Shown here is a 99-nucleotide RNA sequence from Cladocopium goreaui, a member of the family "mir-277 microRNA precursor family". Gene Ontology terms of the family: RISC complex and miRNA-mediated post-transcriptional gene silencing. It scores 45 bits against the family's covariance model. Pairs were carried over by alignment from the consensus structure, which was predicted with RNAalifold. The organism belongs to Cladocopium, within Eukaryota.
[Rfam]
RNA sequence: GGGAUAUAGGGGAUAGUCCCAGUUAGUGGAUUUAAAUAAUUUAAAUGUGUUUGUUUCAAAACAUUGAAAUCCACUAACUGGGACUAUAUCCCAUCAUAU
Numbered sequence: 001g002g003g004a005u006a007u008a009g010g011g012g013a014u015a016g017u018c019c020c021a022g023u024u025a026g027u028g029g030a031u032u033u034a035a036a037u038a039a040u041u042u043a044a045a046u047g048u049g050u051u052u053g054u055u056u057c058a059a060a061a062c063a064u065u066g067a068a069a070u071c072c073a074c075u076a077a078c079u080g081g082g083a084c085u086a087u088a089u090c091c092c093a094u095c096a097u098a099u
Stems, first nucleotide, its partner, number of pairs: 009092003015085009026074001028072006035065002